[Rfam]
RNA: Streptomyces sRNA 4677
RNA sequence: GGCUCCGGCGUCGGCGGCGAUAAAAACCCAUAACCAAAAACCAGAACCAACUACCAAGCCACGCCCCGCCGUUCGAACAUCAGGACCCCCCGCGUAACCCACACGAGUGAUCCUUCACCGGAAGGCUGGCGUUCGCCUUGACGCAAAGUGCAAAGUCGCCCUCGACGACCUGUCCCAGAACAUGAGGCGGCCCCCGCAGGGAGUGCAAUCCCACAGCGAGGGCCUGACCACCCGAGGAAGAAAAGAGCUUCCCG
Numbered sequence: 001g002g003c004u005c006c007g008g009c010g011u012c013g014g015c016g017g018c019g020a021u022a023a024a025a026a027c028c029c030a031u032a033a034c035c036a037a038a039a040a041c042c043a044g045a046a047c048c049a050a051c052u053a054c055c056a057a058g059c060c061a062c063g064c065c066c067c068g069c070c071g072u073u074c075g076a077a078c079a080u081c082a083g084g085a086c087c088c089c090c091c092g093c094g095u096a097a098c099c100c101a102c103a104c105g106a107g108u109g110a111u112c113c114u115u116c117a118c119c120g121g122a123a124g125g126c127u128g129g130c131g132u133u134c135g136c137c138u139u140g141a142c143g144c145a146a147a148g149u150g151c152a153a154a155g156u157c158g159c160c161c162u163c164g165a166c167g168a169c170c171u172g173u174c175c176c177a178g179a180a181c182a183u184g185a186g187g188c189g190g191c192c193c194c195c196g197c198a199g200g201g202a203g204u205g206c207a208a209u210c211c212c213a214c215a216g217c218g219a220g221g222g223c224c225u226g227a228c229c230a231c232c233c234g235a236g237g238a239a240g241a242a243a244a245g246a247g248c249u250u251c252c253c254g
Stems, first nucleotide, its partner, number of pairs: 007232002010229001016090002019087001095110001097108002100105001126164001128160003189224005195218003199212004236252005